Record summary: The record is a 103-nucleotide RNA sequence from Consotaella salsifontis, which matches "rpsB sRNA" in Rfam.
RNA sequence: CACACACGGAUUUGCGGGAUCGGAGCACAUCAUGCCGAUUCCUCCGGUGGCGGGUGAAACCGCUUCUGUCCGUGGAGGCUCAACCGGUAAAGGAACGAAAUUC
Numbered sequence: 001c002a003c004a005c006a007c008g009g010a011u012u013u014g015c016g017g018g019a020u021c022g023g024a025g026c027a028c029a030u031c032a033u034g035c036c037g038a039u040u041c042c043u044c045c046g047g048u049g050g051c052g053g054g055u056g057a058a059a060c061c062g063c064u065u066c067u068g069u070c071c072g073u074g075g076a077g078g079c080u081c082a083a084c085c086g087g088u089a090a091a092g093g094a095a096c097g098a099a100a101u102u103c
Base pairs, nucleotide, nucleotide: 001077003075005074006073007072008071009070010069012068016042017041021037022036023035049064050063051062052061053060

By type it is a small RNA.